[Rfam]
RNA sequence: UAGUAGGGAGGAUUGGGGUGCCAGCCGUGCCCCGUUCUGAAACCGGCUAUAUGCAGAGAUCAGUAACUGCUGGGUAAAUCUCUGGAUAGGCAGUACCCGCUUGGCGUGCGGAAAUGAAAUCACGCCGAGGCGGGUGGUUGCAGGCCCGGGACCAUCCGAAGGGAUGGCUCUGAGGGCCGGACCAUCGAAAGGGACCAGGUCCGGGAGGGAGCAGUCCUAAGUUGGAGCAUCCACGCUUCCUCGUCAACGUGGCGGAUCUUGUGCGCCUUGAAAAGGGGCUGUCGGUCCAGACCGGGUCCGGCAGGGCUACUA
Numbered sequence: 001u002a003g004u005a006g007g008g009a010g011g012a013u014u015g016g017g018g019u020g021c022c023a024g025c026c027g028u029g030c031c032c033c034g035u036u037c038u039g040a041a042a043c044c045g046g047c048u049a050u051a052u053g054c055a056g057a058g059a060u061c062a063g064u065a066a067c068u069g070c071u072g073g074g075u076a077a078a079u080c081u082c083u084g085g086a087u088a089g090g091c092a093g094u095a096c097c098c099g100c101u102u103g104g105c106g107u108g109c110g111g112a113a114a115u116g117a118a119a120u121c122a123c124g125c126c127g128a129g130g131c132g133g134g135u136g137g138u139u140g141c142a143g144g145c146c147c148g149g150g151a152c153c154a155u156c157c158g159a160a161g162g163g164a165u166g167g168c169u170c171u172g173a174g175g176g177c178c179g180g181a182c183c184a185u186c187g188a189a190a191g192g193g194a195c196c197a198g199g200u201c202c203g204g205g206a207g208g209g210a211g212c213a214g215u216c217c218u219a220a221g222u223u224g225g226a227g228c229a230u231c232c233a234c235g236c237u238u239c240c241u242c243g244u245c246a247a248c249g250u251g252g253c254g255g256a257u258c259u260u261g262u263g264c265g266c267c268u269u270g271a272a273a274a275g276g277g278g279c280u281g282u283c284g285g286u287c288c289a290g291a292c293c294g295g296g297u298c299c300g301g302c303a304g305g306g307c308u309a310c311u312a
Stems, first nucleotide, its partner, number of pairs: 001312005007307001011061004015033007036057004041052001067304007076297001079294001082290003089283006096277003100270001103267009113257001115255001120252005126243005132237002134234004139229003143178005148171003152167006182225003186221001191218005200209003